[Rfam]
RNA sequence: GCAACAUCGCUUUCUCGCGCCAGAACCGCACGGUAUUCCUGUCGAUGCUGGGUAACUCGUGGUUCUGGUUCUACGGCGCGCUGGUGCUGUCGCAGUUCCCGAUAUUCGCGAAGGACUACCUG
Numbered sequence: 001g002c003a004a005c006a007u008c009g010c011u012u013u014c015u016c017g018c019g020c021c022a023g024a025a026c027c028g029c030a031c032g033g034u035a036u037u038c039c040u041g042u043c044g045a046u047g048c049u050g051g052g053u054a055a056c057u058c059g060u061g062g063u064u065c066u067g068g069u070u071c072u073a074c075g076g077c078g079c080g081c082u083g084g085u086g087c088u089g090u091c092g093c094a095g096u097u098c099c100c101g102a103u104a105u106u107c108g109c110g111a112a113g114g115a116c117u118a119c120c121u122g
Stems, first nucleotide, its partner, number of pairs: 009048002012045002017042003022037002025034002051121002055117001057115002060112001064104001067099002071095002074092005080087002

Rfam assigns this 122-nucleotide RNA from Massilia cavernae to the family "Burkholderia RNA 11". Pairs were carried over by alignment from the consensus structure, which was predicted with RNAfold. Co-purified with Hfq, expression confirmed by Northern blot. Predicted target marZ. Overlaps coding sequence. A reference for the family is Ramos et al. (2013), "Experimental identification of small non-coding regulatory RNAs in the opportunistic human pathogen Burkholderia cenocepacia J2315", Genomics. Gene Ontology term of the family: protein binding.